[Rfam]
RNA sequence: AUCCUUGAAGAUGAAGAGAUUGUUUCAUAUAUUUUGAAUGGCCUUGACUCAGAUUAUACGCAACUAGUGUCAUCCGUCAUGUCUAGGACAGAUCCAAUCUCCAUCAAUGAGUUGUAUUCCCAGGCUCUCAGCUUUGAGU
Numbered sequence: 001a002u003c004c005u006u007g008a009a010g011a012u013g014a015a016g017a018g019a020u021u022g023u024u025u026c027a028u029a030u031a032u033u034u035u036g037a038a039u040g041g042c043c044u045u046g047a048c049u050c051a052g053a054u055u056a057u058a059c060g061c062a063a064c065u066a067g068u069g070u071c072a073u074c075c076g077u078c079a080u081g082u083c084u085a086g087g088a089c090a091g092a093u094c095c096a097a098u099c100u101c102c103a104u105c106a107a108u109g110a111g112u113u114g115u116a117u118u119c120c121c122a123g124g125c126u127c128u129c130a131g132c133u134u135u136g137a138g139u
Base pairs, nucleotide, nucleotide: 004138005137006136007135008134088108091105092104093103
RNA: Small nucleolar RNA Z247
Organism: Paspalum vaginatum